[Rfam]
RNA sequence: GGAAGCGUGUGCUAGUGGUUGCACCACUGAACAUUGAUCGCUAACGUAGAAAUUUUUCUAUCACAUGGCAGAUCUGAUCAGUGGGUGUUAUCACGUCCGUAAGCUUUAUGUAGCUUCUCUGUGCAGAAAUUCCCGAUUGCGCAUGCAUCUUCGUGGCUCGUUUACGACCUCGGAUUUGCACGCCUGCACGGUCGAGUUUCCUGUCGCUCCUCGGUACCCGCGAUUUCCAAAUGGGGGGCAAUCGAAUAGGUUCAGACACGAGGUAAUUUGUCGCUUCCAUAUACAGGCACCGCAGAUCGCGGUUCGCCAUUUUUGUAU
Numbered sequence: 001g002g003a004a005g006c007g008u009g010u011g012c013u014a015g016u017g018g019u020u021g022c023a024c025c026a027c028u029g030a031a032c033a034u035u036g037a038u039c040g041c042u043a044a045c046g047u048a049g050a051a052a053u054u055u056u057u058c059u060a061u062c063a064c065a066u067g068g069c070a071g072a073u074c075u076g077a078u079c080a081g082u083g084g085g086u087g088u089u090a091u092c093a094c095g096u097c098c099g100u101a102a103g104c105u106u107u108a109u110g111u112a113g114c115u116u117c118u119c120u121g122u123g124c125a126g127a128a129a130u131u132c133c134c135g136a137u138u139g140c141g142c143a144u145g146c147a148u149c150u151u152c153g154u155g156g157c158u159c160g161u162u163u164a165c166g167a168c169c170u171c172g173g174a175u176u177u178g179c180a181c182g183c184c185u186g187c188a189c190g191g192u193c194g195a196g197u198u199u200c201c202u203g204u205c206g207c208u209c210c211u212c213g214g215u216a217c218c219c220g221c222g223a224u225u226u227c228c229a230a231a232u233g234g235g236g237g238g239c240a241a242u243c244g245a246a247u248a249g250g251u252u253c254a255g256a257c258a259c260g261a262g263g264u265a266a267u268u269u270g271u272c273g274c275u276u277c278c279a280u281a282u283a284c285a286g287g288c289a290c291c292g293c294a295g296a297u298c299g300c301g302g303u304u305c306g307c308c309a310u311u312u313u314u315g316u317a318u
Stems, first nucleotide, its partner, number of pairs: 001278007015094005027081003032076002036074004040069004286308003289303005
Arthropod 7SK RNA: a 318-nucleotide RNA from Nylanderia fulva. NCBI's taxonomy places the organism under Eukaryota, Hexapoda, Eumetabola, Aculeata, Nylanderia. Rfam 15.1 lists 229 matches to the family in 137 species. By type it is a non-coding RNA gene. It scores 110 bits against the family's covariance model. For this family Rfam cites "Arthropod 7SK RNA" (Gruber et al., Mol Biol Evol, 2008).